[Rfam]
RNA: Transposase-2 RNA
RNA sequence: GAAGCGUCAACCCGGCACGACGACACUGUCGGUGAGACCGGGACUGUUUCACCGGAAGGUGAGGCUGCC
Numbered sequence: 001g002a003a004g005c006g007u008c009a010a011c012c013c014g015g016c017a018c019g020a021c022g023a024c025a026c027u028g029u030c031g032g033u034g035a036g037a038c039c040g041g042g043a044c045u046g047u048u049u050c051a052c053c054g055g056a057a058g059g060u061g062a063g064g065c066u067g068c069c
Stems, first nucleotide, its partner, number of pairs: 011042005018031004046065008